A member of the RNA family "Selenocysteine insertion sequence 3" from Thioalkalivibrio paradoxus, 59 nucleotides long. The base pairs follow the family's consensus structure, which was predicted with CMfinder. The literature on the family includes a 1996 paper in RNA by Huttenhofer et al., "Solution structure of mRNA hairpins promoting selenocysteine incorporation in Escherichia coli and their base-specific interaction with special elongation factor SELB". Rfam links the family to the GO term selenocysteine incorporation. The family's RNA type in Rfam is cis-regulatory element.
[Rfam]
RNA sequence: AUUUGACACGCUCCGACGGUGGCCAGUCUGGCCCCGACUUUCGGACGCGGUGCAAUGAC
Numbered sequence: 001a002u003u004u005g006a007c008a009c010g011c012u013c014c015g016a017c018g019g020u021g022g023c024c025a026g027u028c029u030g031g032c033c034c035c036g037a038c039u040u041u042c043g044g045a046c047g048c049g050g051u052g053c054a055a056u057g058a059c
Stems, first nucleotide, its partner, number of pairs: 007049001009047002012044002015042002018035002021033005